[Rfam]
RNA sequence: ACCCUCCAGUUCCCUUUCCCAUCGGAUCUAAACCCUGGUCUUGGUGGUCAUAAAAGGAGGAAUAGUAGUACUGAAACUGUGCUCGUGGUGUGUGCUGUACAGCACGUGGGCUAGUUUCAGACAAGG
Number, nucleotide and partner (000 for none) at each position: 001a000002c000003c060004c059005u058006c057007c056008a000009g000010u000011u000012c000013c000014c000015u000016u000017u000018c000019c047020c046021a045022u044023c043024g000025g040026a039027u038028c037029u000030a000031a000032a000033c000034c000035c000036u000037g028038g027039u026040c025041u000042u000043g023044g022045u021046g020047g019048u000049c000050a000051u000052a000053a000054a000055a000056g007057g006058a005059g004060g003061a000062a000063u000064a000065g000066u000067a000068g000069u000070a000071c000072u000073g000074a000075a000076a000077c114078u113079g112080u000081g111082c110083u109084c108085g000086u104087g103088g000089u000090g000091u000092g000093u000094g000095c000096u000097g000098u000099a000100c000101a000102g000103c087104a086105c000106g000107u000108g084109g083110g082111c081112u079113a078114g077115u000116u000117u000118c000119a000120g000121a000122c000123a000124a000125g000126g000

The family of this 126-nucleotide sequence from Bos taurus is "Small nucleolar RNA SNORA61". Rfam 15.1 lists 881 matches to the family in 421 species. The source organism's lineage runs through Eukaryota, Gnathostomata, Euteleostomi, Theria and Bos. It is annotated as an H/ACA-box small nucleolar RNA. The sequence is in the family's curated seed alignment.